[Rfam]
RNA sequence: UUUGGAGGGAUAAGAAAGCAAAGUCUGAGAAGUGAGACUCUGCUGAUACCACCCUCCUACAGUAACAGGGCGGAGAGAGAGAGCAGCUCGGCUCUGAGAUUCAGCCACUGCUCCCUGCACCAUCCAACAUUU
Numbered sequence: 001u002u003u004g005g006a007g008g009g010a011u012a013a014g015a016a017a018g019c020a021a022a023g024u025c026u027g028a029g030a031a032g033u034g035a036g037a038c039u040c041u042g043c044u045g046a047u048a049c050c051a052c053c054c055u056c057c058u059a060c061a062g063u064a065a066c067a068g069g070g071c072g073g074a075g076a077g078a079g080a081g082a083g084c085a086g087c088u089c090g091g092c093u094c095u096g097a098g099a100u101u102c103a104g105c106c107a108c109u110g111c112u113c114c115c116u117g118c119a120c121c122a123u124c125c126a127a128c129a130u131u132u
Stems, first nucleotide, its partner, number of pairs: 003059001004057006017044003022039005068124002078116002081113006091105003
Record summary
Rfam assigns this 132-nucleotide RNA sequence from Xenopus laevis to the family "Small Cajal body specific RNA 4". Its Rfam clan is "SCARNA4 clan". A search with the family's covariance model found it, with a score of 77 bits. scaRNAs are a specific class of small nuclear RNAs which localise to the Cajal bodies and guide the modification of RNA polymerase II transcribed spliceosomal RNAs U1, U2, U4, U5 and U12. ACA26 belongs to the H/ACA box class of guide RNAs as it has the predicted hairpin-hinge-hairpin-tail structure, conserved H/ACA-box motifs and is found associated with GAR1.